Rfam assigns this 131-nucleotide RNA from Phyllostomus discolor to the family "Small nucleolar RNA SNORA63". Gene Ontology terms of the family: nucleolus and RNA processing. NCBI's taxonomy places the organism under Eukaryota, Sarcopterygii, Dipnotetrapodomorpha, Tetrapoda, Phyllostomus. The match comes from Rfam's covariance-model search (92 bits). E3 belongs to the H/ACA class of snoRNAs and is involved in the processing of eukaryotic pre-rRNA and has regions of complementarity to 18S rRNA. E3 is encoded in introns in the gene for protein synthesis initiation factor 4AII.
RNA sequence: AAGCAGGGCCUAGUUACAAUGUAGCUGUGAGGUGCUGCGUUGUUUUUGCCCAUGCUCAAAACAGAACUGUUUCCUUUCUGGCCCUGCCGGCCCAGGUGCCGUAGCCGGCAGGGAUGCAGGGUCUCAUACAC
Numbered sequence: 001a002a003g004c005a006g007g008g009c010c011u012a013g014u015u016a017c018a019a020u021g022u023a024g025c026u027g028u029g030a031g032g033u034g035c036u037g038c039g040u041u042g043u044u045u046u047u048g049c050c051c052a053u054g055c056u057c058a059a060a061a062c063a064g065a066a067c068u069g070u071u072u073c074c075u076u077u078c079u080g081g082c083c084c085u086g087c088c089g090g091c092c093c094a095g096g097u098g099c100c101g102u103a104g105c106c107g108g109c110a111g112g113g114a115u116g117c118a119g120g121g122u123c124u125c126a127u128a129c130a131c
Stems, first nucleotide, its partner, number of pairs: 003055003007051001016043010083112004088107004